The family of this 95-nucleotide RNA from Limosilactobacillus reuteri is "THF (Tetrahydrofolate) riboswitch aptamer". Rfam's curators put it in the seed alignment. About the family: Tetrahydrofolate (THF) riboswitch was first reported for Ames et al. as an RNA motif in 5' untranslated (5'-UTR)regions of folate transport and biosynthesis genes in Firmicutes genomes.
RNA sequence: UGGGGUAGGAAUCUCAGAGUUAUUGUCUAACGGAACGGAAUGUGAACGUUAGGAGGAGGCUUAUAACUAGCUGCUUUGUUAUUCCGCAUUCACCA
Dot-bracket structure: (((....(((((..(((.((..((..((((((.....[[[[[....))))))))...((((.......)))))).)))..))))).]]]]].)))